Guanidine-I riboswitch aptamer: a 111-nucleotide sequence from Nocardioides sp. Root614.
From the family's description: This family represents a conserved RNA structure found upstream of the ykkC and yxkD genes in Bacillus subtilis and related genes in other bacteria. The function of this family is unclear although it has been suggested that it may function to switch on efflux pumps and detoxification systems in response to harmful environmental molecules.
RNA sequence: GCGGGGCGCCCCUAGGGUUCCGUCUCCGGCAACGGAGGGCCUGGUCCGAGAGGGGAGGCGGUCGCACAGAGAUGUACGACCGUUCCACGGCGGGACAAAAGCCCGGGAGGC
Numbered sequence: 001g002c003g004g005g006g007c008g009c010c011c012c013u014a015g016g017g018u019u020c021c022g023u024c025u026c027c028g029g030c031a032a033c034g035g036a037g038g039g040c041c042u043g044g045u046c047c048g049a050g051a052g053g054g055g056a057g058g059c060g061g062u063c064g065c066a067c068a069g070a071g072a073u074g075u076a077c078g079a080c081c082g083u084u085c086c087a088c089g090g091c092g093g094g095a096c097a098a099a100a101g102c103c104c105g106g107g108a109g110g111c
Stems, first nucleotide, its partner, number of pairs: 007057001009055004015047002020044002022041001023038006058083007086106001088109001092104003